[Rfam]
A member of the RNA family "MIR2629 microRNA precursor family" from Medicago truncatula, 67 nucleotides long. Gene Ontology terms of the family: miRNA-mediated post-transcriptional gene silencing and RISC complex. Pairs were carried over by alignment from the consensus structure, which was predicted with RNAalifold. A search with the family's covariance model found it, with a score of 60 bits.

RNA sequence: UUUUCAGUUUUCCUCAGCAGUUAACUGCAGUCGAUUUCAUAAUUCGUAGUUAACUGCCGAGGAGCAU
Numbered sequence: 001u002u003u004u005c006a007g008u009u010u011u012c013c014u015c016a017g018c019a020g021u022u023a024a025c026u027g028c029a030g031u032c033g034a035u036u037u038c039a040u041a042a043u044u045c046g047u048a049g050u051u052a053a054c055u056g057c058c059g060a061g062g063a064g065c066a067u
Base pairs, nucleotide, nucleotide: 011063012062014060015059017057018056019055020054021053022052023051024050025049026048027047028046